The record is a 421-nucleotide RNA sequence from Rhodopseudomonas faecalis, which matches "Bacterial RNase P class A" in Rfam. It is annotated as a ribozyme.

[Rfam]
Nucleotides: 421
Stems, first nucleotide, its partner, number of pairs: 001417010011406001012359007020048007028040001053404003057401005062226004075222005080094005095109001096107004110217002115215002117211003132157002134153003138149004165183006184206001185204004190199003230316004240307006285300004323342008
Number, partner (000 for none) and nucleotide at each position: 001417u002416c003415a004414g005413u006412c007411g008410g009409c010408c011406g012359g013358g014357c015356g016355g017354c018353c019000g020048c021047u022046c023045c024044g025043g026042c027000a028040a029000g030000u031000a032000c033000c034000g035000a036000a037000a038000g039000g040028u041000c042026g043025c044024c045023g046022g047021g048020g049000a050000g051000g052000a053404a054403a055402g056000u057401c058400c059399g060398g061397g062226c063225u064224c065223c066000a067000u068000c069000g070000a071000c072000a073000u074000a075222c076221g077220g078219u079218g080094c081093c082092g083091g084090a085000u086000a087000a088000c089000g090084u091083c092082c093081g094080g095109c096107g097106g098105g099104g100000g101000c102000g103000a104099c105098c106097c107096c108000a109095g110217g111216g112000a113000a114000a115215g116214u117211g118210c119209c120000a121000c122000a123000g124000a125000g126000a127000a128000c129000g130000a131000a132157c133156c134153g135152c136151c137000a138149c139148g140147u141146c142000u143000g144000c145000g146141g147140a148139c149138g150000c151136g152135g153134u154000a155000a156133g157132g158000g159000u160000g161000a162000a163000a164000a165183g166182g167181u168180g169179c170178g171000g172000u173000a174000a175000g176000a177000g178170c179169g180168c181167a182166c183165c184206g185204c186203g187202u188201u189000u190199c191198c192197g193000g194000c195000a196000a197192c198191g199190g200000c201188a202187a203186c204185g205000g206184c207000a208000a209119g210118g211117u212000a213000a214116a215115c216111c217110c218079c219078a220077c221076c222075g223065g224064g225063a226062g227000c228000a229000a230316a231315a232314c233313c234000g235000a236000a237000u238000a239000g240307g241306g242305a243304c244303a245302g246000c247000a248000a249000c250000g251000c252000g253000g254000a255000u256000a257000g258000u259000u260000c261000g262000c263000u264000g265000c266000u267000u268000g269000c270000a271000g272000c273000g274000a275000u276000a277000a278000c279000u280000c281000c282000g283000c284000a285300g286299g287298g288297u289000g290000a291000u292000g293000u294000c295000a296000a297288a298287c299286c300285c301000g302245c303244u304243g305242u306241c307240c308000g309000g310000g311000u312000a313233g314232g315231u316230u317000g318000c319000u320000u321000g322000a323342g324341g325340c326339g327338g328337c329336g330335u331000g332000c333000a334000a335330a336329c337328g338327u339326c340325g341324u342323c343000c344000c345000a346000g347000a348000g349000g350000a351000a352000u353018g354017g355016c356015c357014g358013c359012c360000g361000c362000g363000u364000a365000u366000c367000g368000g369000c370000u371000g372000c373000g374000c375000a376000a377000g378000c379000a380000g381000u382000c383000g384000g385000u386000g387000c388000c389000c390000u391000c392000c393000a394000g395000a396000a397061c398060c399059c400058g401057g402055c403054u404053u405000a406011c407000a408010g409009g410008c411007c412006g413005g414004c415003u416002g417001a418000u419000a420000u421000u